RNA: Plastid-rpl16 group II-D1 intron
RNA sequence: AAGAGCUUCGAGCCAAUUAAGACUAAGAAGGUUGACUCAAGACUAAA
Numbered sequence: 001a002a003g004a005g006c007u008u009c010g011a012g013c014c015a016a017u018u019a020a021g022a023c024u025a026a027g028a029a030g031g032u033u034g035a036c037u038c039a040a041g042a043c044u045a046a047a
Stems, first nucleotide, its partner, number of pairs: 007041002010038003014034004